[Rfam]
RNA sequence: GUGAGUUCCCGGCUGUGAGAACUGAAUUCCAAGGGUUGUGAGUUCCUCCUCAGCCCCUGGAUCUCAGUUCUUCAGCCUGGUGUUCUCUG
Dot-bracket structure: .......((.(((....((((((((.......((((................)))).......))))))))...))).)).........
A member of the RNA family "mir-146 microRNA precursor family" from Anguilla anguilla, 89 nucleotides long. Gene Ontology terms of the family: RISC complex and miRNA-mediated post-transcriptional gene silencing. On this family, see Lagos-Quintana et al., Curr Biol 2002: "Identification of tissue-specific microRNAs from mouse". The match comes from Rfam's covariance-model search (74 bits). Taxonomically the source falls in Anguilla (Eukaryota, Eumetazoa, Teleostei, Elopomorpha).